A member of the RNA family "mir-133 microRNA precursor family" from Cloeon dipterum, 75 nucleotides long. From the family's description: mir-133 was first experimentally characterised in mouse and homologues have since been discovered in several other species.

[Rfam]
RNA sequence: CAAGUUUAGCUGGUUGAAACCGGGCCGAAUUGAAGGAUCUUGACCCAUUUGGUCCCCUUCAACCAGCUGUGGUUG
Dot-bracket structure: ..(.(..(((((((((((...((.((((((................))))))))...)))))))))))..).)..
Background: It scores 56 bits against the family's covariance model. Its family is annotated with miRNA-mediated post-transcriptional gene silencing and RISC complex in the Gene Ontology. The family has 127 seed sequences and 3,763 matches in Rfam 15.1.